RNA sequence: GGCGAUUUGGGGCUUGACGUCGGCACUGUAACAUGGCUUUUGUCAUUCAUAACAAUGUUGCAGUGACGACUUCGCGCUCCCGAUGGCCA
Numbered sequence: 001g002g003c004g005a006u007u008u009g010g011g012g013c014u015u016g017a018c019g020u021c022g023g024c025a026c027u028g029u030a031a032c033a034u035g036g037c038u039u040u041u042g043u044c045a046u047u048c049a050u051a052a053c054a055a056u057g058u059u060g061c062a063g064u065g066a067c068g069a070c071u072u073c074g075c076g077c078u079c080c081c082g083a084u085g086g087c088c089a
Stems, first nucleotide, its partner, number of pairs: 001088003005084003009080005015074003019070004024065010034045004
The record is an 89-nucleotide sequence from Strongylocentrotus purpuratus, which matches "mir-4854 microRNA precursor family" in Rfam. Rfam's curators put it in the seed alignment.